[Rfam]
RNA sequence: UUGACGGUGAAGUCCCACUCGCCCUGCGGCCCGGCCAGCACCUGGUCGCCGAAGUAGUCGCCGUCGGCCAGCACGCCGAGCACGGUCUGGGCGCCGUACUCGCCCUGGCCGAUCUUGUUCACCUUGCCGUGCGCGACGAGGAACACCCGGUCCUGGGGCUGCCCGCGCUCCACGAUCACGUCGCCGGGCGAGUACUCGUGCUGGCUGAACCGGCCCGCGAGGGCGGCGAGCGCCUCCACGUCCUCGUAACCGCGCAGCAGCGGCAGCUCGGUCAGCUCCUGCGGGACGACCUGGACGUCCGCGCCGAUGUUGGUGAACGUCAGCCGGCCGUCGCCGACCGCGUAGCUCAGCCUGCGGUUGACCCGGUAGGCGCCGCCGGACGCCUGCACCCAGGGGAGCACCUUGAGCAGCCACCGGGACGUGAUGCCCUGCAUCUGCGGGACGGACUUGGUCGUCGUGGCCAGGUUCCUGGCCGCCGCCGUGCCGAGGCUGAGCCUGGGCCGUUCGG
Numbered sequence: 001u002u003g004a005c006g007g008u009g010a011a012g013u014c015c016c017a018c019u020c021g022c023c024c025u026g027c028g029g030c031c032c033g034g035c036c037a038g039c040a041c042c043u044g045g046u047c048g049c050c051g052a053a054g055u056a057g058u059c060g061c062c063g064u065c066g067g068c069c070a071g072c073a074c075g076c077c078g079a080g081c082a083c084g085g086u087c088u089g090g091g092c093g094c095c096g097u098a099c100u101c102g103c104c105c106u107g108g109c110c111g112a113u114c115u116u117g118u119u120c121a122c123c124u125u126g127c128c129g130u131g132c133g134c135g136a137c138g139a140g141g142a143a144c145a146c147c148c149g150g151u152c153c154u155g156g157g158g159c160u161g162c163c164c165g166c167g168c169u170c171c172a173c174g175a176u177c178a179c180g181u182c183g184c185c186g187g188g189c190g191a192g193u194a195c196u197c198g199u200g201c202u203g204g205c206u207g208a209a210c211c212g213g214c215c216c217g218c219g220a221g222g223g224c225g226g227c228g229a230g231c232g233c234c235u236c237c238a239c240g241u242c243c244u245c246g247u248a249a250c251c252g253c254g255c256a257g258c259a260g261c262g263g264c265a266g267c268u269c270g271g272u273c274a275g276c277u278c279c280u281g282c283g284g285g286a287c288g289a290c291c292u293g294g295a296c297g298u299c300c301g302c303g304c305c306g307a308u309g310u311u312g313g314u315g316a317a318c319g320u321c322a323g324c325c326g327g328c329c330g331u332c333g334c335c336g337a338c339c340g341c342g343u344a345g346c347u348c349a350g351c352c353u354g355c356g357g358u359u360g361a362c363c364c365g366g367u368a369g370g371c372g373c374c375g376c377c378g379g380a381c382g383c384c385u386g387c388a389c390c391c392a393g394g395g396g397a398g399c400a401c402c403u404u405g406a407g408c409a410g411c412c413a414c415c416g417g418g419a420c421g422u423g424a425u426g427c428c429c430u431g432c433a434u435c436u437g438c439g440g441g442a443c444g445g446a447c448u449u450g451g452u453c454g455u456c457g458u459g460g461c462c463a464g465g466u467u468c469c470u471g472g473c474c475g476c477c478g479c480c481g482u483g484c485c486g487a488g489g490c491u492g493a494g495c496c497u498g499g500g501c502c503g504u505u506c507g508g
Stems, first nucleotide, its partner, number of pairs: 006390004011385002014382001019327003024323002026320003031315001035313006042306001045305001047303003051299002054233002058229007065111004075103001077102004082097005118221003122217001127212001129210002133205002135202001138197003148190002153187002157185003160178002164174002235295003240290003244286002251281002254278001256277003261270002329342003351379002354376004362370002391431005397425001399423003403418002407415001437476004444469003447465006477507002480503002484499003488495001
Shown here is a 508-nucleotide RNA from Saccharothrix australiensis, a member of the family "Saccharopolyspora sRNA 350". Gene Ontology term of the family: regulation of secondary metabolite biosynthetic process. It is annotated as an antisense RNA. On this family, see Liu et al., PLoS One 2013: "Prediction and characterization of small non-coding RNAs related to secondary metabolites in Saccharopolyspora erythraea". The family has 2 seed sequences and 1,170 matches in Rfam 15.1. A search with the family's covariance model found it, with a score of 252 bits.